[Rfam]
RNA: DUF1874 RNA
RNA sequence: GUAGGCCCGAGGUCAAGUUCUGGGAGUGGCCACUCAAGGUAAGAGGUGCCAGAGGCACCCGCCACUCCUGGUUCCAAAAGGGCUUGGCCUUAGGGCGGAGGA
Numbered sequence: 001g002u003a004g005g006c007c008c009g010a011g012g013u014c015a016a017g018u019u020c021u022g023g024g025a026g027u028g029g030c031c032a033c034u035c036a037a038g039g040u041a042a043g044a045g046g047u048g049c050c051a052g053a054g055g056c057a058c059c060c061g062c063c064a065c066u067c068c069u070g071g072u073u074c075c076a077a078a079a080g081g082g083c084u085u086g087g088c089c090u091u092a093g094g095g096c097g098g099a100g101g102a
Stems, first nucleotide, its partner, number of pairs: 006094002009091001011089004022069009043060001045059005070084005